[Rfam]
RNA sequence: UGCUUGUAGCGAAAUUAAUUGAAUGGAGAAGUUAUCUGGCCGGUUGUUGUUUUUCUUGGGAUUUUUCUGAAUCUCAAUCGUCGACAUAUCUGCUUACCGAACUUCUCAUAUUC
Numbered sequence: 001u002g003c004u005u006g007u008a009g010c011g012a013a014a015u016u017a018a019u020u021g022a023a024u025g026g027a028g029a030a031g032u033u034a035u036c037u038g039g040c041c042g043g044u045u046g047u048u049g050u051u052u053u054u055c056u057u058g059g060g061a062u063u064u065u066u067c068u069g070a071a072u073c074u075c076a077a078u079c080g081u082c083g084a085c086a087u088a089u090c091u092g093c094u095u096a097c098c099g100a101a102c103u104u105c106u107c108a109u110a111u112u113c
Base pairs, nucleotide, nucleotide: 026107027106028105029104030103031102032101033100038094039093040092042090043089044088046085047084048083049082
A member of the RNA family "Small nucleolar RNA snoR109" from Striga asiatica, 113 nucleotides long. A reference for the family is Marker et al. (2002), "Experimental RNomics: identification of 140 candidates for small non-messenger RNAs in the plant Arabidopsis thaliana", Curr Biol. Rfam links the family to the GO terms nucleolus and RNA processing. It is annotated as an H/ACA-box small nucleolar RNA.